[Rfam]
RNA sequence: GGUUUUGCGAUGAUAAGAACAUAAAUUCCUCGUUCUGAAUGCCAAAUUUGGGCUUGGUUGAUUGUGUAUACUAAUUGGAAUUGUGCAAA
Numbered sequence: 001g002g003u004u005u006u007g008c009g010a011u012g013a014u015a016a017g018a019a020c021a022u023a024a025a026u027u028c029c030u031c032g033u034u035c036u037g038a039a040u041g042c043c044a045a046a047u048u049u050g051g052g053c054u055u056g057g058u059u060g061a062u063u064g065u066g067u068a069u070a071c072u073a074a075u076u077g078g079a080a081u082u083g084u085g086c087a088a089a
Stems, first nucleotide, its partner, number of pairs: 003089002006087002